[Rfam]
RNA sequence: UAAAAAGCUAUGAAGGGAACCAACUGUAGUUCUUCUAUCCCUGUUUGUAGAGAGUCAGCGGUGGUGCAAGCUGAUACAUAUAGAAGAAUGAAUUACGUCCUUGAGCUUUCUCUGUGAAGAUUGAUUGACAGUAGUGGAGAACGGUCUAAACCGUUAAUUUUAUGAGUUGGAGGAAUGUUCCUAUUCCUCAAGCUGGGUGGUACCGCGUAAAUUUACGUCCCUGCA
Numbered sequence: 001u002a003a004a005a006a007g008c009u010a011u012g013a014a015g016g017g018a019a020c021c022a023a024c025u026g027u028a029g030u031u032c033u034u035c036u037a038u039c040c041c042u043g044u045u046u047g048u049a050g051a052g053a054g055u056c057a058g059c060g061g062u063g064g065u066g067c068a069a070g071c072u073g074a075u076a077c078a079u080a081u082a083g084a085a086g087a088a089u090g091a092a093u094u095a096c097g098u099c100c101u102u103g104a105g106c107u108u109u110c111u112c113u114g115u116g117a118a119g120a121u122u123g124a125u126u127g128a129c130a131g132u133a134g135u136g137g138a139g140a141a142c143g144g145u146c147u148a149a150a151c152c153g154u155u156a157a158u159u160u161u162a163u164g165a166g167u168u169g170g171a172g173g174a175a176u177g178u179u180c181c182u183a184u185u186c187c188u189c190a191a192g193c194u195g196g197g198u199g200g201u202a203c204c205g206c207g208u209a210a211a212u213u214u215a216c217g218u219c220c221c222u223g224c225a
Base pairs, nucleotide, nucleotide: 007106008105015101016100017099018098029089030088031087032086033085034084042078043077044076054075055074056073057072058071059070109140110139111138112137113136114135115134142153143152144151170189171188172187173186174185175184176183195221196220197219205218206217207216208215209214
Dot-bracket structure: ......((......((((..........((((((.......(((.........((((((..........))))))))).....))))))........))))...))..(((((((..................))))))).(((......)))................(((((((......))))))).....(((.......(((((....))))))))....
T-box leader: a 225-nucleotide RNA sequence. Pairs were carried over by alignment from the consensus structure, which is taken from published work. Rfam's curators write: Uncharged tRNA acts as the effector for transcription antitermination of genes in the T-box leader family. T-boxes are found upstream of many aminoacyl-tRNA synthetase genes and some amino acid biosynthetic genes usually in Gram-positive bacteria. The anticodon of a specific tRNA base pairs to a specifier sequence within the T-box motif, and the NCCA acceptor tail of the tRNA base pairs to a conserved bulge in the T-box antiterminator hairpin. It scores 139 bits against the family's covariance model.